A member of the RNA family "Small nucleolar RNA SNORD14" from Papaver nudicaule, 124 nucleotides long. From the family's description: U14 small nucleolar RNA (U14 snoRNA) is required for early cleavages of eukaryotic precursor rRNAs. In yeasts, this molecule possess a stem-loop region (known as the Y-domain) which is essential for function. A reference for the family is Samarsky et al. (1996), "An essential domain in Saccharomyces cerevisiae U14 snoRNA is absent in vertebrates, but conserved in other yeasts", Nucleic Acids Res. The family's consensus secondary structure was predicted with PFOLD. A search with the family's covariance model found it, with a score of 83 bits. The family's RNA type in Rfam is C/D-box small nucleolar RNA.

RNA sequence: UGUUGAUGAUGAUAAUACUAAGGCUUGUUUCUCAAGAACAUUCGCAGUUGCCGACUAAGAGCUUUCGCCUUUCGCCUGGCUUGAGAGCUAAUGCUGCUUUAUCCUUCCUUGGAUGUCUGAAACA
Numbered sequence: 001u002g003u004u005g006a007u008g009a010u011g012a013u014a015a016u017a018c019u020a021a022g023g024c025u026u027g028u029u030u031c032u033c034a035a036g037a038a039c040a041u042u043c044g045c046a047g048u049u050g051c052c053g054a055c056u057a058a059g060a061g062c063u064u065u066c067g068c069c070u071u072u073c074g075c076c077u078g079g080c081u082u083g084a085g086a087g088c089u090a091a092u093g094c095u096g097c098u099u100u101a102u103c104c105u106u107c108c109u110u111g112g113a114u115g116u117c118u119g120a121a122a123c124a
Base pairs, nucleotide, nucleotide: 001124002123003122004121061088062087063086064085065084066083